[Rfam]
RNA sequence: CUCUUAUCAAGAGUAGGUGGAGGGAAAUGGCCCGAUGAAGCCCAGCAACCGACCGUAAUACCAUCGUAAGAUGGGGCUCUGUUUUACAGCAGGGGCCGUGGAGAUUUAUCCACGCAUGGCACGGUGCUAAGUCCAACAGAACAAGUUUCUGUGAGAUAAGAG
Numbered sequence: 001c002u003c004u005u006a007u008c009a010a011g012a013g014u015a016g017g018u019g020g021a022g023g024g025a026a027a028u029g030g031c032c033c034g035a036u037g038a039a040g041c042c043c044a045g046c047a048a049c050c051g052a053c054c055g056u057a058a059u060a061c062c063a064u065c066g067u068a069a070g071a072u073g074g075g076g077c078u079c080u081g082u083u084u085u086a087c088a089g090c091a092g093g094g095g096c097c098g099u100g101g102a103g104a105u106u107u108a109u110c111c112a113c114g115c116a117u118g119g120c121a122c123g124g125u126g127c128u129a130a131g132u133c134c135a136a137c138a139g140a141a142c143a144a145g146u147u148u149c150u151g152u153g154a155g156a157u158a159a160g161a162g
Base pairs, nucleotide, nucleotide: 001162002161003160004159005158006157007156008155013043016042017041018040022033023032024031028135029134030133044128045127046126047125049124050123051120053118132154137151138150139149140148141147
Annotation:
The family of this 162-nucleotide sequence from Shimazuella alba is "SAM riboswitch aptamer (S box leader)". On this family, see Epshtein et al., Proc Natl Acad Sci U S A 2003: "The riboswitch-mediated control of sulfur metabolism in bacteria". It scores 72 bits against the family's covariance model.